Rfam assigns this 222-nucleotide RNA sequence from Marchantia polymorpha to the family "Plant small nucleolar RNA U3". The source organism's lineage runs through Eukaryota, Viridiplantae, Embryophyta, Marchantiopsida and Marchantia polymorpha. Clan: U3 clan. A reference for the family is Zwieb (1997), "The uRNA database", Nucleic Acids Res. Rfam's curators write: Small nucleolar RNAs (snoRNAs) are involved in the processing and modification of rRNA in the nucleolus. There are two main classes of snoRNAs: the box C/D class, and the box H/ACA class. U3 snoRNA is a member of the box C/D class. Indeed, the box C/D element is a subset of the six short sequence elements found in all U3 snoRNAs, namely boxes A, A', B, C, C', and D. The U3 snoRNA secondary structure is characterised by a small 5' domain (with boxes A and A'), and a larger 3' domain (with boxes B, C, C', and D), the two domains being linked by a single-stranded hinge. Boxes B and C form the B/C motif, which appears to be exclusive to U3 snoRNAs, and boxes C' and D form the C'/D motif. The latter is functionally similar to the C/D motifs found in other snoRNAs. The 5' domain and the hinge region act as a pre-rRNA-binding domain. The 3' domain has conserved protein-binding sites. Both the box B/C and box C'/D motifs are sufficient for nuclear retention of U3 snoRNA. The box C'/D motif is also necessary for nucleolar localisation, stability and hyper-methylation of U3 snoRNA. Both box B/C and C'/D motifs are involved in specific protein interactions and are necessary for the rRNA processing functions of U3 snoRNA. It is annotated as a C/D-box small nucleolar RNA.

[Rfam]
RNA sequence: ACGACUAUACUUGAACAGGAUCUGUUCUAUAGUACGUACAUCUUGAUCUGUGAUCACUAUCAUAGUCAAGUUCCUUGACCCGGACGAUGAGCAGAGGCUUGGGUGCCAGUGCGCGAAAACUGCUGGCCGCGCCGGGCGAAAGCCUGCGCUCGGUCAGCUUCAUGAACGUCCUGCUGCGCUCAUUCCGCCGGCAGUGAAAGCACUCAAGGGUUCUGACGGGCC
Numbered sequence: 001a002c003g004a005c006u007a008u009a010c011u012u013g014a015a016c017a018g019g020a021u022c023u024g025u026u027c028u029a030u031a032g033u034a035c036g037u038a039c040a041u042c043u044u045g046a047u048c049u050g051u052g053a054u055c056a057c058u059a060u061c062a063u064a065g066u067c068a069a070g071u072u073c074c075u076u077g078a079c080c081c082g083g084a085c086g087a088u089g090a091g092c093a094g095a096g097g098c099u100u101g102g103g104u105g106c107c108a109g110u111g112c113g114c115g116a117a118a119a120c121u122g123c124u125g126g127c128c129g130c131g132c133c134g135g136g137c138g139a140a141a142g143c144c145u146g147c148g149c150u151c152g153g154u155c156a157g158c159u160u161c162a163u164g165a166a167c168g169u170c171c172u173g174c175u176g177c178g179c180u181c182a183u184u185c186c187g188c189c190g191g192c193a194g195u196g197a198a199a200g201c202a203c204u205c206a207a208g209g210g211u212u213c214u215g216a217c218g219g220g221c222c
Base pairs, nucleotide, nucleotide: 001037002036005032006031013027014026015025016024017023018022043069044068045067046066049064050063051062052061053060054059079220080219081218082217098208099207100206101205102204103203104202105201106200111169112168113167122158123157124156125155126154127153128152129151131149132148133146134145135144136143137142171194172193173192174191175190176188177187178186
Dot-bracket structure: ((..((......((((((...))))))...))...)).....((((..((((((....)))))).)))).........((((...............(((((((((....(((........((((((((.(((((((....))))).)).))))))))........))).((((((((.......))).))))).....)))))))))........))))..